[Rfam]
RNA sequence: UAUCAGUAAGGUGAUGGCGUUCCACCUUCCCCAACCGCCUCGUUCUGAGGCUAAUGACGCCUGAUAUGAC
Numbered sequence: 001u002a003u004c005a006g007u008a009a010g011g012u013g014a015u016g017g018c019g020u021u022c023c024a025c026c027u028u029c030c031c032c033a034a035c036c037g038c039c040u041c042g043u044u045c046u047g048a049g050g051c052u053a054a055u056g057a058c059g060c061c062u063g064a065u066a067u068g069a070c
Stems, first nucleotide, its partner, number of pairs: 010026004016061006037051004
Rfam assigns this 70-nucleotide RNA from Enterobacteriaceae bacterium strain FGI 57 to the family "Fluoride riboswitch aptamer (crcB RNA motif)".
The match comes from Rfam's covariance-model search (51 bits).